[Rfam]
RNA sequence: AGUCUUUCUCGCCUUCUUUUCCCGGUUCUUCCUGGAAUCGGGAAGAGCUGUGUUGAGGGGGCAAAAAAAGAAAAAA
Numbered sequence: 001a002g003u004c005u006u007u008c009u010c011g012c013c014u015u016c017u018u019u020u021c022c023c024g025g026u027u028c029u030u031c032c033u034g035g036a037a038u039c040g041g042g043a044a045g046a047g048c049u050g051u052g053u054u055g056a057g058g059g060g061g062c063a064a065a066a067a068a069a070g071a072a073a074a075a076a
Stems, first nucleotide, its partner, number of pairs: 014059005021052001023050003029044006
Rfam assigns this 76-nucleotide RNA from Prolemur simus to the family "mir-320 microRNA precursor family". NCBI's taxonomy places the organism under Eukaryota, Amniota, Theria, Euarchontoglires, Prolemur. The match comes from Rfam's covariance-model search (70 bits). The base pairs follow the family's consensus structure, which was predicted with RNAalifold.